[Rfam]
RNA sequence: GGCGCAGAGGAUGAGCGACACAGGGACUUAAUGCUGAAGGCUGAUGUGACUGCAGGGUACUGAUGCGC
Numbered sequence: 001g002g003c004g005c006a007g008a009g010g011a012u013g014a015g016c017g018a019c020a021c022a023g024g025g026a027c028u029u030a031a032u033g034c035u036g037a038a039g040g041c042u043g044a045u046g047u048g049a050c051u052g053c054a055g056g057g058u059a060c061u062g063a064u065g066c067g068c
Stems, first nucleotide, its partner, number of pairs: 002068005
RNA: Small nucleolar RNA SNORD82